[Rfam]
RNA sequence: GUAUGGGUCACCGCAAGGUUUCUGGCGCGUUUCGUCAGACCGUAUUCUGCGGUUCGCUCGCGAACCGUAACCGGCAAGCCCGGAUGUUUUAACCCGCCGGUGUCUGCACCGGG
Numbered sequence: 001g002u003a004u005g006g007g008u009c010a011c012c013g014c015a016a017g018g019u020u021u022c023u024g025g026c027g028c029g030u031u032u033c034g035u036c037a038g039a040c041c042g043u044a045u046u047c048u049g050c051g052g053u054u055c056g057c058u059c060g061c062g063a064a065c066c067g068u069a070a071c072c073g074g075c076a077a078g079c080c081c082g083g084a085u086g087u088u089u090u091a092a093c094c095c096g097c098c099g100g101u102g103u104c105u106g107c108a109c110c111g112g113g
Stems, first nucleotide, its partner, number of pairs: 010019003021039006048069009071083004097112005
The family of this 113-nucleotide RNA from Pseudomonas graminis is "Pseudomon-groES RNA". A search with the family's covariance model found it, with a score of 86 bits. Rfam classes the family as a cis-regulatory element. The organism belongs to Pseudomonas, within Bacteria. The base pairs follow the family's consensus structure, which is taken from published work.